[Rfam]
The family of this 107-nucleotide RNA from Methylobrevis albus is "Guanidine-I riboswitch aptamer".

RNA sequence: AGAGAUGGCGGCUAGGGUUCCGGCUCCGAUGCGAGCGCUGGUCCGAGAGCUGCCGCCGGCCCGGGAGACAUCCGGCCGGUACACGGAGGGACAAAAUCCCGGGAGAC
Numbered sequence: 001a002g003a004g005a006u007g008g009c010g011g012c013u014a015g016g017g018u019u020c021c022g023g024c025u026c027c028g029a030u031g032c033g034a035g036c037g038c039u040g041g042u043c044c045g046a047g048a049g050c051u052g053c054c055g056c057c058g059g060c061c062c063g064g065g066a067g068a069c070a071u072c073c074g075g076c077c078g079g080u081a082c083a084c085g086g087a088g089g090g091a092c093a094a095a096a097u098c099c100c101g102g103g104a105g106a107c
Stems, first nucleotide, its partner, number of pairs: 007054006015044002020041002022038001023036004055080007082102001084105001088100003
About this RNA:
This family represents a conserved RNA structure found upstream of the ykkC and yxkD genes in Bacillus subtilis and related genes in other bacteria. The function of this family is unclear although it has been suggested that it may function to switch on efflux pumps and detoxification systems in response to harmful environmental molecules.